A member of the RNA family "Enterobacteria greA leader" from Enterobacillus tribolii, 181 nucleotides long. The family's RNA type in Rfam is cis-regulatory leader. Rfam links the family to the GO term regulation of gene expression. It scores 93 bits against the family's covariance model. NCBI's taxonomy places the organism under Bacteria, Gammaproteobacteria, Enterobacterales, Hafniaceae, Enterobacillus.
RNA sequence: GUCAUACUACGGUGCAUUGAGGUCGAAAGUAAACGAUGUCCUCAUCCCCUCAGCCUUUGUGGGGCCUGAGUUACGGGCCGUCGUGCGAAAUACUUUAGGUAUGGGGAACUCUGCGAUAGAAUACACGUCAAAAUGCAAAACCAAUUCUGACCUGGACCUUUUGUCCGGGUCAGGUUUCUUU
Numbered sequence: 001g002u003c004a005u006a007c008u009a010c011g012g013u014g015c016a017u018u019g020a021g022g023u024c025g026a027a028a029g030u031a032a033a034c035g036a037u038g039u040c041c042u043c044a045u046c047c048c049c050u051c052a053g054c055c056u057u058u059g060u061g062g063g064g065c066c067u068g069a070g071u072u073a074c075g076g077g078c079c080g081u082c083g084u085g086c087g088a089a090a091u092a093c094u095u096u097a098g099g100u101a102u103g104g105g106g107a108a109c110u111c112u113g114c115g116a117u118a119g120a121a122u123a124c125a126c127g128u129c130a131a132a133a134u135g136c137a138a139a140a141c142c143a144a145u146u147c148u149g150a151c152c153u154g155g156a157c158c159u160u161u162u163g164u165c166c167g168g169g170u171c172a173g174g175u176u177u178c179u180u181u
Stems, first nucleotide, its partner, number of pairs: 001040001003038003010035002014030002041106002115129003146174011